RNA sequence: CGUGCGUCCUACGGGAGUCCGGGCGACGGGCUGAGAGGGGACCUGGCGGUCCCGACCGUUCGAACCUGAUCCGGAUCAUGCCGGCGCAGGGAACCGCGGAGGACGCGUA
Numbered sequence: 001c002g003u004g005c006g007u008c009c010u011a012c013g014g015g016a017g018u019c020c021g022g023g024c025g026a027c028g029g030g031c032u033g034a035g036a037g038g039g040g041a042c043c044u045g046g047c048g049g050u051c052c053c054g055a056c057c058g059u060u061c062g063a064a065c066c067u068g069a070u071c072c073g074g075a076u077c078a079u080g081c082c083g084g085c086g087c088a089g090g091g092a093a094c095c096g097c098g099g100a101g102g103a104c105g106c107g108u109a
Stems, first nucleotide, its partner, number of pairs: 006097002010093001011059004017031005038053005065090004071084004
Background:
Shown here is a 109-nucleotide RNA from Actinomycetospora corticicola, a member of the family "TPP riboswitch aptamer (THI element)". The match comes from Rfam's covariance-model search (67 bits). Pairs were carried over by alignment from the consensus structure, which is taken from published work. The source organism's lineage runs through Bacteria, Bacillati, Actinomycetes, Pseudonocardiaceae and Actinomycetospora. Gene Ontology term of the family: thiamine pyrophosphate binding.